[Rfam]
RNA sequence: CCCAGCAGUAGUCAGCUGCCCGUGGCUGCUCAGUGCCUGUGCCAGUGUUAUGCUGCUGGGAGAGAAAGGUGCUGCUGAGCUCUCCUGGCACCAGCGUGGCCGUCCUGGCAUUCGGUGGUGCCAGGUUUUGGCAGCACUCUGCAUGCCUUGAGAGUGGAGUAACUCCUGCCCGUGGAGUUAGAGCCUAGAAUGGAUGCAGACAAU
Numbered sequence: 001c002c003c004a005g006c007a008g009u010a011g012u013c014a015g016c017u018g019c020c021c022g023u024g025g026c027u028g029c030u031c032a033g034u035g036c037c038u039g040u041g042c043c044a045g046u047g048u049u050a051u052g053c054u055g056c057u058g059g060g061a062g063a064g065a066a067a068g069g070u071g072c073u074g075c076u077g078a079g080c081u082c083u084c085c086u087g088g089c090a091c092c093a094g095c096g097u098g099g100c101c102g103u104c105c106u107g108g109c110a111u112u113c114g115g116u117g118g119u120g121c122c123a124g125g126u127u128u129u130g131g132c133a134g135c136a137c138u139c140u141g142c143a144u145g146c147c148u149u150g151a152g153a154g155u156g157g158a159g160u161a162a163c164u165c166c167u168g169c170c171c172g173u174g175g176a177g178u179u180a181g182a183g184c185c186u187a188g189a190a191u192g193g194a195u196g197c198a199g200a201c202a203a204u
Base pairs, nucleotide, nucleotide: 001060002059003058004057005056006055007054008053009052011051012050015046016045017044018043020041021039022038024037025036026035069137070136071135072134073133074132075131076130077129084125085124086123087121091117096111099109100108101107139199140198141197142196143195144194146193147192156185157184160180161179162178163177164176165175166174
The record is a 204-nucleotide RNA from Helopsaltes ochotensis, which matches "Small nucleolar RNA SNORA74" in Rfam. About the family: U19 belongs to the H/ACA class of snoRNAs. snoRNAs bind a number of proteins (including dyskerin, Gar1p and Nop10p in the case of the H/ACA class) to form snoRNP complexes. By type it is an H/ACA-box small nucleolar RNA. Rfam links the family to the GO terms RNA processing and nucleolus. Clan: SNORA74 clan.